[Rfam]
RNA sequence: CUGUUAAGUAAUGACGUGACAGACGGAAUAUCACAUCAUCACGUUUUGUCAUGGACACCCAAUUGUCAUAUCACCACCUUCAAUGACGUGUCCGUGAUUGAACAUGAUGACAUGACAUUUUGUUUGUUACGUCAUCAUUUAACGGAA
Numbered sequence: 001c002u003g004u005u006a007a008g009u010a011a012u013g014a015c016g017u018g019a020c021a022g023a024c025g026g027a028a029u030a031u032c033a034c035a036u037c038a039u040c041a042c043g044u045u046u047u048g049u050c051a052u053g054g055a056c057a058c059c060c061a062a063u064u065g066u067c068a069u070a071u072c073a074c075c076a077c078c079u080u081c082a083a084u085g086a087c088g089u090g091u092c093c094g095u096g097a098u099u100g101a102a103c104a105u106g107a108u109g110a111c112a113u114g115a116c117a118u119u120u121u122g123u124u125u126g127u128u129a130c131g132u133c134a135u136c137a138u139u140u141a142a143c144g145g146a147a
Stems, first nucleotide, its partner, number of pairs: 001145009011135019031115003036110006043103004048098005054092005062084004
Shown here is a 147-nucleotide RNA from Glycine max, a member of the family "MIR4371 microRNA precursor family". The family is grouped with related families in Rfam's "MIR4387 microRNA precursor clan". The family has 4 seed sequences and 321 matches in Rfam 15.1. NCBI's taxonomy places the organism under Eukaryota, Streptophytina, Embryophyta, Tracheophyta, Glycine subgen. Soja.